[Rfam]
RNA sequence: CUCUGUCUUGCUUCAACAAUGUUUGGAUAGAACAG
Numbered sequence: 001c002u003c004u005g006u007c008u009u010g011c012u013u014c015a016a017c018a019a020u021g022u023u024u025g026g027a028u029a030g031a032a033c034a035g
Stems, first nucleotide, its partner, number of pairs: 001035002004032001006031003010028001012027005017021001
RNA: Iron response element I
Organism: Chrysochloris asiatica